[Rfam]
RNA sequence: AUGGAGAAUGCCGAAAAUCCAAAAUAGAGUAGGUA
Numbered sequence: 001a002u003g004g005a006g007a008a009u010g011c012c013g014a015a016a017a018u019c020c021a022a023a024a025u026a027g028a029g030u031a032g033g034u035a
Stems, first nucleotide, its partner, number of pairs: 002021004010034003
RNA: DUF805b RNA